[Rfam]
The record is an 85-nucleotide sequence from Alicyclobacillus sp. SO9, which matches "c-di-GMP-I riboswitch aptamer" in Rfam. Taxonomically the source falls in Alicyclobacillus (Bacteria, Bacillati, Bacilli, Alicyclobacillaceae). A search with the family's covariance model found it, with a score of 69 bits.
RNA sequence: CAGUUUCAAAGGUAAACCGUUCCGAAAGGACGGGACACAAAACCACGGGGCUACGGCCGUUGGCUAAGCUCGCCGGGUUGCCGUC
Numbered sequence: 001c002a003g004u005u006u007c008a009a010a011g012g013u014a015a016a017c018c019g020u021u022c023c024g025a026a027a028g029g030a031c032g033g034g035a036c037a038c039a040a041a042a043c044c045a046c047g048g049g050g051c052u053a054c055g056g057c058c059g060u061u062g063g064c065u066a067a068g069c070u071c072g073c074c075g076g077g078u079u080g081c082c083g084u085c
Stems, first nucleotide, its partner, number of pairs: 012038002017033004022029002041079004046075003049070003056064003